[Rfam]
RNA sequence: GUAUAAUGAUGAAAUCCAUGCGUGUCAGCUGACUCUGGAAACCCCUGGUGUGGUGUUGCUCUAGUAGGCGUUCUGUCUGCCUGAGUCUGCAGACAACAGGGGCCCAUAGCAAUGAUAAUACAUCACAAAUUCUGAAUAC
Number, nucleotide and partner (000 for none) at each position: 001g139002u138003a137004u136005a000006a000007u000008g000009a000010u000011g000012a000013a000014a000015u000016c000017c000018a000019u000020g000021c000022g000023u000024g000025u000026c000027a000028g000029c000030u000031g000032a000033c000034u000035c000036u000037g000038g000039a000040a000041a000042c000043c101044c100045c099046u098047g097048g000049u095050g094051u093052g000053g000054u000055g000056u000057u000058g000059c000060u000061c000062u000063a000064g000065u000066a000067g000068g000069c000070g000071u000072u000073c000074u000075g000076u000077c000078u000079g000080c000081c000082u000083g000084a000085g000086u000087c000088u000089g000090c000091a000092g000093a051094c050095a049096a000097c047098a046099g045100g044101g043102g000103c000104c000105c000106a000107u000108a000109g000110c000111a000112a000113u000114g000115a000116u000117a000118a000119u000120a000121c000122a000123u000124c000125a000126c000127a000128a000129a000130u000131u000132c000133u000134g000135a000136a004137u003138a002139c001

Small nucleolar RNA SNORD10: a 139-nucleotide RNA sequence from Channa argus. Rfam 15.1 lists 433 matches to the family in 306 species. By type it is a C/D-box small nucleolar RNA.